[Rfam]
RNA: TPP riboswitch aptamer (THI element)
Organism: Roseivivax sp. THAF197b
RNA sequence: AGGGCCACCUCGGGGUGCCCGGAAGGGCUGAGAUGCGCAUGAUGCGAACCCGUUGAACCUGAACCGGUUAACACCGGCGGAGGGAAGGUUUGCCGGGCCACA
Numbered sequence: 001a002g003g004g005c006c007a008c009c010u011c012g013g014g015g016u017g018c019c020c021g022g023a024a025g026g027g028c029u030g031a032g033a034u035g036c037g038c039a040u041g042a043u044g045c046g047a048a049c050c051c052g053u054u055g056a057a058c059c060u061g062a063a064c065c066g067g068u069u070a071a072c073a074c075c076g077g078c079g080g081a082g083g084g085a086a087g088g089u090u091u092g093c094c095g096g097g098c099c100a101c102a
Stems, first nucleotide, its partner, number of pairs: 007089004011052004016046001017028004035045003058083003064077004